[Rfam]
RNA sequence: AAUCAACUCGGGAUGCGAGUCCCGGCCUGUUCACUGUAGGGAGCCCGAAAUGGCACUUAGUGUUGAAGAAAAAGCCCAGAUCGUUAACGAGUACAAACUGGCCGAA
Numbered sequence: 001a002a003u004c005a006a007c008u009c010g011g012g013a014u015g016c017g018a019g020u021c022c023c024g025g026c027c028u029g030u031u032c033a034c035u036g037u038a039g040g041g042a043g044c045c046c047g048a049a050a051u052g053g054c055a056c057u058u059a060g061u062g063u064u065g066a067a068g069a070a071a072a073a074g075c076c077c078a079g080a081u082c083g084u085u086a087a088c089g090a091g092u093a094c095a096a097a098c099u100g101g102c103c104g105a106a
Stems, first nucleotide, its partner, number of pairs: 008025005037060001039058003043054001
RNA: Ribosomal S15 leader